A member of the RNA family "Nuclear RNase P" from Tulasnella sp. JGI-2019a, 630 nucleotides long. By type it is a ribozyme. NCBI's taxonomy places the organism under Eukaryota, Opisthokonta, Agaricomycotina, Cantharellales, Tulasnellaceae.
[Rfam]
RNA sequence: CAGGCUGUGAGCCGCGUUGCUCGUCACGCACAAGGGUACCUCUCGAUGGUUAUCCUCCUCUUUAGCGAGCGGGAAGGUCUGAGGAUUCUAGUCCCACUUCAAUGCAUGACUCUAGCCGGGUCUGACGUUGACUCACGUCACUGCGACACACAAGAAAUACGUGCUGUAUAUGGUUGCUUCACGCUGCCUGAAGAUCCUUAGACGGGGAGGGCACUGACCUUUCAGGCGCUUGGGAUAUGUCGCAUGGGAUCGACCUGCAUCAUCGCUUCACCACAUCUCGAUCUUCACCCAGCGUCACCCGCCUUUUCGUCUAAUUAACGAUUAAGGCAAGAAGUACCUCGACGUCUUCUCGGAAGCGCCGCUCACCCAAGGGCACGCCAUGAUGUCAUGAGUUCCUCGUCGUAUCAUGUAAUGCGCAAGGUCCUGCGCAUCACAGCCAGUGAGAACGUGGUUCAUACCCCGCAAGGAUUGGCCGCAUAGUUCGAUCUGGCUACCGAUCACUCUCGGAAGGGUGCUGGGGGGAUCCUAGUUUAGGAUGUGUUCGUUGGCCGAUGCAGGUCUUCAGUUCACUACACGGCGAGGUUGUGGCGUCAUGCCCUUCCUUCACUCGAUUCAGACUAUCACAGUCUG
Dot-bracket structure: (((...(((...[....[(((((.........(((((..............))))).........)))))........(((((.........((((...........(((((.....)))))((((((......)))))).(((((((............(((((...........................................................)))))........)))))))))))...................................................................................................................................................................................................................................................................................................................................]....].((((..(............)..)))).......))))).....)))...)))